The family of this 112-nucleotide RNA sequence from Hibiscus syriacus is "MIR396 microRNA precursor family". It scores 90 bits against the family's covariance model. Pairs were carried over by alignment from the consensus structure, which was predicted with WAR. The organism belongs to Hibiscus, within Eukaryota.
RNA sequence: GGUCAUGCUUUUCCACGGCUUUCUUGAACUUUCUUUGUAUUCAUGCUGCCUGAUAUAUAAUUGUAUAUAGCACACCAUGAAAGUUCAAGAAAGCUGUGGGAGAACAUGAUAG
Numbered sequence: 001g002g003u004c005a006u007g008c009u010u011u012u013c014c015a016c017g018g019c020u021u022u023c024u025u026g027a028a029c030u031u032u033c034u035u036u037g038u039a040u041u042c043a044u045g046c047u048g049c050c051u052g053a054u055a056u057a058u059a060a061u062u063g064u065a066u067a068u069a070g071c072a073c074a075c076c077a078u079g080a081a082a083g084u085u086c087a088a089g090a091a092a093g094c095u096g097u098g099g100g101a102g103a104a105c106a107u108g109a110u111a112g
Base pairs, nucleotide, nucleotide: 003109004108005107006106007105013099014098015097017095018094019093020092021091022090024088025087026086027085029083030082031081032080033079